[Rfam]
RNA sequence: GCCCUACGGACGGAUUGAACGGCAACCGAUAGCGAGAAUUGGGUAGGGC
Number, nucleotide and partner (000 for none) at each position: 001g049002c048003c047004c046005u045006a044007c043008g000009g000010a000011c021012g020013g000014a000015u000016u000017g033018a000019a000020c012021g011022g000023c036024a000025a000026c042027c041028g040029a039030u038031a000032g000033c017034g000035a000036g023037a000038a030039u029040u028041g027042g026043g007044u006045a005046g004047g003048g002049c001
Rfam assigns this 49-nucleotide sequence to the family "DUF2693-FD RNA". Rfam describes the family as follows. DUF2693-FD RNA is a non-coding RNA (ncRNA) recognised in Bacteroides by a bioinformatic analisis by Zasha Weinberg. Pairs were carried over by alignment from the consensus structure, which is taken from published work.